[Rfam]
RNA sequence: GGGCAAUGAUGAGGAAUUAGAGAAAGUCAUGCACCACGCUGAUUCUAUUAUGUGCUGAUAAUAUCUCUCUACCCAUUUUUUUUUCUGAGCUC
Numbered sequence: 001g002g003g004c005a006a007u008g009a010u011g012a013g014g015a016a017u018u019a020g021a022g023a024a025a026g027u028c029a030u031g032c033a034c035c036a037c038g039c040u041g042a043u044u045c046u047a048u049u050a051u052g053u054g055c056u057g058a059u060a061a062u063a064u065c066u067c068u069c070u071a072c073c074c075a076u077u078u079u080u081u082u083u084u085c086u087g088a089g090c091u092c
Base pairs, nucleotide, nucleotide: 001092002091003090004089